[Rfam]
RNA sequence: CUCCGCCUCAGGCUUGCUUCAGCUGCCUGUGUGUCAUCGCUGCGAGCCACAGGCAAGGUAAAACAAGCCCGAGGCAGGU
Numbered sequence: 001c002u003c004c005g006c007c008u009c010a011g012g013c014u015u016g017c018u019u020c021a022g023c024u025g026c027c028u029g030u031g032u033g034u035c036a037u038c039g040c041u042g043c044g045a046g047c048c049a050c051a052g053g054c055a056a057g058g059u060a061a062a063a064c065a066a067g068c069c070c071g072a073g074g075c076a077g078g079u
Stems, first nucleotide, its partner, number of pairs: 003077001006074003011069006018062002021059001023057001024055006031048001

Overview:
The record is a 79-nucleotide RNA from Petromyzon marinus, which matches "mir-1788 microRNA precursor family" in Rfam.